[Rfam]
RNA sequence: GGCGGCGGCGCGGGCGGCAGUGGCGGGAGCGGCCCCUCGGCCAUCCUCCGUCUGCCCAGUUACCGCUUCCGCUACCGCCGCCGCUCCCGCU
Number, nucleotide and partner (000 for none) at each position: 001g000002g090003c089004g088005g087006c000007g086008g085009c000010g084011c083012g000013g082014g081015c080016g079017g078018c077019a000020g075021u074022g073023g072024c071025g070026g069027g068028a067029g066030c065031g064032g063033c000034c000035c000036c059037u058038c000039g056040g055041c054042c000043a000044u000045c000046c000047u000048c000049c000050g000051u000052c000053u000054g041055c040056c039057c000058a037059g036060u000061u000062a000063c032064c031065g030066c029067u028068u027069c026070c025071g024072c023073u022074a021075c020076c000077g018078c017079c016080g015081c014082c013083g011084c010085u008086c007087c005088c004089g003090c002091u000
Rfam assigns this 91-nucleotide RNA sequence from Mus musculus to the family "mir-935 microRNA precursor family". The family's consensus secondary structure was predicted with RNAalifold. It is one of the family's seed sequences. Rfam links the family to the GO terms RISC complex and miRNA-mediated post-transcriptional gene silencing. The source organism's lineage runs through Eukaryota, Glires, Rodentia, Mus and Mus.